[Rfam]
RNA: SmY spliceosomal RNA
RNA sequence: CGGUAUCUAGCAUUUCAUCGAGGUCUUCUUUAAGACCUUUAGAACAAUUUUUGGAAACCCUGUCUCAUUAAUUGGGGCAGGGUA
Numbered sequence: 001c002g003g004u005a006u007c008u009a010g011c012a013u014u015u016c017a018u019c020g021a022g023g024u025c026u027u028c029u030u031u032a033a034g035a036c037c038u039u040u041a042g043a044a045c046a047a048u049u050u051u052u053g054g055a056a057a058c059c060c061u062g063u064c065u066c067a068u069u070a071a072u073u074g075g076g077g078c079a080g081g082g083u084a
Stems, first nucleotide, its partner, number of pairs: 021038003025034003057083011